[Rfam]
This 441-nucleotide part of an RNA from Sporisorium reilianum belongs to the Rfam family "Eukaryotic large subunit ribosomal RNA".
RNA sequence: GGCAGUAGCAAAUAUUCAAGUGAGAACCUUGAAGACUGAAGUGAGGAAAGGUUCCACGAUUACAGCAAUUGAACGUGGGUUAGCCGAUCCUAAGAGAUAGGGAAAUUCCGUAUUAAAGUUGUGCGCUUGUUCGCAUCGACCUAUCGAAAGGGAAACAGGUUAAAAUUCCUGUGCCGGGAUGUGGAUUUUUGGCGGCAACGCAAACAAACUAGGAGACGUCGGCGGAAGCCCUGGGGAGAGUUCUUUUCUUUUCUUAACGACACGACCCACCUCGGAAUCAAUUUACUUGGAGAAGGGGUAGGUCUGUCGGCAGAGCUAGGUACUUAUGCCUGGUCCGGAGCGCUUUCGACGACCCUUGAAAAUCCUAGGGAGCGAAUAAUUUUCACACCCGGUCGUACUCAUAACCGCAUCAGGUCCUCAAGGUGAACAGCCUCUAGUUGA
Numbered sequence: 001g002g003c004a005g006u007a008g009c010a011a012a013u014a015u016u017c018a019a020g021u022g023a024g025a026a027c028c029u030u031g032a033a034g035a036c037u038g039a040a041g042u043g044a045g046g047a048a049a050g051g052u053u054c055c056a057c058g059a060u061u062a063c064a065g066c067a068a069u070u071g072a073a074c075g076u077g078g079g080u081u082a083g084c085c086g087a088u089c090c091u092a093a094g095a096g097a098u099a100g101g102g103a104a105a106u107u108c109c110g111u112a113u114u115a116a117a118g119u120u121g122u123g124c125g126c127u128u129g130u131u132c133g134c135a136u137c138g139a140c141c142u143a144u145c146g147a148a149a150g151g152g153a154a155a156c157a158g159g160u161u162a163a164a165a166u167u168c169c170u171g172u173g174c175c176g177g178g179a180u181g182u183g184g185a186u187u188u189u190u191g192g193c194g195g196c197a198a199c200g201c202a203a204a205c206a207a208a209c210u211a212g213g214a215g216a217c218g219u220c221g222g223c224g225g226a227a228g229c230c231c232u233g234g235g236g237a238g239a240g241u242u243c244u245u246u247u248c249u250u251u252u253c254u255u256a257a258c259g260a261c262a263c264g265a266c267c268c269a270c271c272u273c274g275g276a277a278u279c280a281a282u283u284u285a286c287u288u289g290g291a292g293a294a295g296g297g298g299u300a301g302g303u304c305u306g307u308c309g310g311c312a313g314a315g316c317u318a319g320g321u322a323c324u325u326a327u328g329c330c331u332g333g334u335c336c337g338g339a340g341c342g343c344u345u346u347c348g349a350c351g352a353c354c355c356u357u358g359a360a361a362a363u364c365c366u367a368g369g370g371a372g373c374g375a376a377u378a379a380u381u382u383u384c385a386c387a388c389c390c391g392g393u394c395g396u397a398c399u400c401a402u403a404a405c406c407g408c409a410u411c412a413g414g415u416c417c418u419c420a421a422g423g424u425g426a427a428c429a430g431c432c433u434c435u436a437g438u439u440g441a
Stems, first nucleotide, its partner, number of pairs: 015033006034439004043419004049399002054078005063071002085395003089151002094145002097111002100109003120135002155172005175391004180387005185381001192201003209368006218353004223348007231338003234254006258309005269299005278290004316333007405414002421433004

The family's consensus secondary structure is taken from published work. The family has 88 seed sequences and 107,465 matches in Rfam 15.1. Rfam links the family to the GO terms ribosome and structural constituent of ribosome. Taxonomically the source falls in Sporisorium reilianum (Eukaryota, Fungi, Ustilaginomycetes, Ustilaginales).